[Rfam]
RNA sequence: AAGGAUCUUCGGGGUAAGGUGAAAUUCCUAACCGGCGGUGAUGCUCACCUACAGAGCUCAGCCCGCGACUCGCUGCUGCCGAACUGGCAGCAGCGACUGACUUGGUGCAAAUCCAAGGCCGACGGUAAAGUCCGGAUGGAAGAAGAUCAUC
Numbered sequence: 001a002a003g004g005a006u007c008u009u010c011g012g013g014g015u016a017a018g019g020u021g022a023a024a025u026u027c028c029u030a031a032c033c034g035g036c037g038g039u040g041a042u043g044c045u046c047a048c049c050u051a052c053a054g055a056g057c058u059c060a061g062c063c064c065g066c067g068a069c070u071c072g073c074u075g076c077u078g079c080c081g082a083a084c085u086g087g088c089a090g091c092a093g094c095g096a097c098u099g100a101c102u103u104g105g106u107g108c109a110a111a112u113c114c115a116a117g118g119c120c121g122a123c124g125g126u127a128a129a130g131u132c133c134g135g136a137u138g139g140a141a142g143a144a145g146a147u148c149a150u151c
Stems, first nucleotide, its partner, number of pairs: 004148007017029003031131002033121002035066004061119002070096005101117005123134003
RNA: FMN riboswitch aptamer (RFN element)
Organism: Paenibacillus yonginensis